[Rfam]
RNA sequence: GGUAUUGUUUGCCCCACGAUGAGCCCCGGAAACUUAUUGUGUUUGUCAAACAUUUA
Numbered sequence: 001g002g003u004a005u006u007g008u009u010u011g012c013c014c015c016a017c018g019a020u021g022a023g024c025c026c027c028g029g030a031a032a033c034u035u036a037u038u039g040u041g042u043u044u045g046u047c048a049a050a051c052a053u054u055u056a
Base pairs, nucleotide, nucleotide: 006052007051008050009049010048011047015041016040017039018038019037020036021035022034023033